[Rfam]
RNA sequence: AAACUUCAUGUUCCCUCAAAGGCUUCCAGUAUUCAUUCAUAUAUAAUUUACUUGAAUGCUGGAAGGUUUUGAAGGAAACUUGAUAGCU
Number, nucleotide and partner (000 for none) at each position: 001a000002a000003a000004c000005u000006u083007c082008a081009u000010g079011u078012u076013c075014c074015c000016u072017c071018a070019a069020a068021g067022g000023c065024u000025u063026c062027c061028a060029g059030u058031a057032u056033u055034c054035a000036u000037u000038c000039a000040u000041a000042u000043a000044u000045a000046a000047u000048u000049u000050a000051c000052u000053u000054g034055a033056a032057u031058g030059c029060u028061g027062g026063a025064a000065g023066g000067u021068u020069u019070u018071g017072a016073a000074g014075g013076a012077a000078a011079c010080u000081u008082g007083a006084u000085a000086g000087c000088u000